Shown here is a 73-nucleotide RNA sequence from Streptomyces sp. AJS327, a member of the family "tRNA".
RNA sequence: AGGGUCGUAGCUCAAUUGGAAGAGCACUGGUCUCCAAAACCAGCGGUUGUGGGUUCGAGUCCCUCCGGCCCUG
Dot-bracket structure: (((((((..((((........)))).(((((.......))))).....(.(((.......))).)))))))).
Numbered sequence: 001a002g003g004g005u006c007g008u009a010g011c012u013c014a015a016u017u018g019g020a021a022g023a024g025c026a027c028u029g030g031u032c033u034c035c036a037a038a039a040c041c042a043g044c045g046g047u048u049g050u051g052g053g054u055u056c057g058a059g060u061c062c063c064u065c066c067g068g069c070c071c072u073g
Stems, first nucleotide, its partner, number of pairs: 001072007010025004027043005049065001051063003
It is annotated as a transfer RNA. From the family's description: Transfer RNA (tRNA) molecules are approximately 80 nucleotides in length. A search with the family's covariance model found it, with a score of 66 bits.